Background:
The record is a 105-nucleotide sequence from Gossypium harknessii, which matches "mir-395 microRNA precursor family" in Rfam. A search with the family's covariance model found it, with a score of 58 bits. The source organism's lineage runs through Eukaryota, Spermatophyta, rosids, malvids and Gossypium. mir-395 was identified in both Arabidopsis thaliana and Oryza sativa computationally and was later experimentally verified. mir-395 is thought to target mRNAs coding for ATP sulphurylases. The mature sequence is excised from the 3' arm of the hairpin.

RNA sequence: CUAUCUCCCAGAGUUCCUCCCAAACACUUCAGUAGGACAAAAUUCCCUCUGUUAAGUUUCUUAAAAUAGCCUCAGUGAAGUGUUCAGGGGAACUCCAGGGAACAA
Numbered sequence: 001c002u003a004u005c006u007c008c009c010a011g012a013g014u015u016c017c018u019c020c021c022a023a024a025c026a027c028u029u030c031a032g033u034a035g036g037a038c039a040a041a042a043u044u045c046c047c048u049c050u051g052u053u054a055a056g057u058u059u060c061u062u063a064a065a066a067u068a069g070c071c072u073c074a075g076u077g078a079a080g081u082g083u084u085c086a087g088g089g090g091a092a093c094u095c096c097a098g099g100g101a102a103c104a105a
Base pairs, nucleotide, nucleotide: 006100007099008098011095012094013093014092015091016090017089018088019087023084024083025082026081027080028079029078030077031076033074035072036071